This 106-nucleotide RNA from Nakaseomyces glabratus belongs to the Rfam family "Small nucleolar RNA snR57". NCBI's taxonomy places the organism under Eukaryota, Fungi, Dikarya, Ascomycota, Nakaseomyces. It scores 77 bits against the family's covariance model. Rfam classes the family as a C/D-box small nucleolar RNA.

RNA sequence: UUUUAUAUGAUUAUAAAACACUUUAUGGACUUUCGGGUCUGCUUUUACUGAGGAUGUACAUGCAGGACAUAUUGUUAAUUAGGAAUUCUUCGUUUAUGAUCUGAAA
Numbered sequence: 001u002u003u004u005a006u007a008u009g010a011u012u013a014u015a016a017a018a019c020a021c022u023u024u025a026u027g028g029a030c031u032u033u034c035g036g037g038u039c040u041g042c043u044u045u046u047a048c049u050g051a052g053g054a055u056g057u058a059c060a061u062g063c064a065g066g067a068c069a070u071a072u073u074g075u076u077a078a079u080u081a082g083g084a085a086u087u088c089u090u091c092g093u094u095u096a097u098g099a100u101c102u103g104a105a106a
Base pairs, nucleotide, nucleotide: 001106002105003104004103